The record is a 209-nucleotide RNA from Streptococcus iniae, which matches "FasX small RNA" in Rfam. On this family, see Ramirez-Pena et al., Mol Microbiol 2010: "The group A Streptococcus small regulatory RNA FasX enhances streptokinase activity by increasing the stability of the ska mRNA transcript".
RNA sequence: AUAAAUAAAGACUUAAUGAGCGGUCAGUUAGUAAGUCGUCAAUCCCCAAUUCAAUCAAAAUAUUGUUUUCUCUCUCUCUCUCUCCAUAAACAAAUAGUAUUUUUGAUGUGACGAUUACUAAUAAGACGCAUAUUUCAGUUGUCUUUGUUUGGAUAUCACAUAGACUGGUGAUGAAUCAGUCAAGGACUCGGAUUUUUAUCCGAGUCUUU
Numbered sequence: 001a002u003a004a005a006u007a008a009a010g011a012c013u014u015a016a017u018g019a020g021c022g023g024u025c026a027g028u029u030a031g032u033a034a035g036u037c038g039u040c041a042a043u044c045c046c047c048a049a050u051u052c053a054a055u056c057a058a059a060a061u062a063u064u065g066u067u068u069u070c071u072c073u074c075u076c077u078c079u080c081u082c083u084c085c086a087u088a089a090a091c092a093a094a095u096a097g098u099a100u101u102u103u104u105g106a107u108g109u110g111a112c113g114a115u116u117a118c119u120a121a122u123a124a125g126a127c128g129c130a131u132a133u134u135u136c137a138g139u140u141g142u143c144u145u146u147g148u149u150u151g152g153a154u155a156u157c158a159c160a161u162a163g164a165c166u167g168g169u170g171a172u173g174a175a176u177c178a179g180u181c182a183a184g185g186a187c188u189c190g191g192a193u194u195u196u197u198a199u200c201c202g203a204g205u206c207u208u209u
Stems, first nucleotide, its partner, number of pairs: 002151011015134004020129003024125001027122006034116008054107007061099008164180006184207009
Dot-bracket structure: .(((((((((((..((((.(((.(..((((((.((((((((............(((((((((((((((.......................)))))))).))))))).))))))))))))))..).))).))))......)))))))))))............((((((.....))))))...(((((((((......)))))))))..